[Rfam]
Rfam assigns this 70-nucleotide RNA from Nannospalax galili to the family "mir-3473 microRNA precursor family". Its family is annotated with miRNA-mediated post-transcriptional gene silencing, cellular response to mechanical stimulus and RISC complex in the Gene Ontology. The organism belongs to Nannospalax, within Eukaryota. The base pairs follow the family's consensus structure, which was predicted with RNAalifold.

RNA sequence: ACCACUGAGCCAUCUCUCCAGCCCCAAAUAAAAUAUUUUUUAAAAAGAGCUGGAGAGAUGGCUUAGUGGU
Numbered sequence: 001a002c003c004a005c006u007g008a009g010c011c012a013u014c015u016c017u018c019c020a021g022c023c024c025c026a027a028a029u030a031a032a033a034u035a036u037u038u039u040u041u042a043a044a045a046a047g048a049g050c051u052g053g054a055g056a057g058a059u060g061g062c063u064u065a066g067u068g069g070u
Base pairs, nucleotide, nucleotide: 002069003068004067005066006065007064008063009062010061011060012059013058014057015056016055017054018053019052020051021050022049024047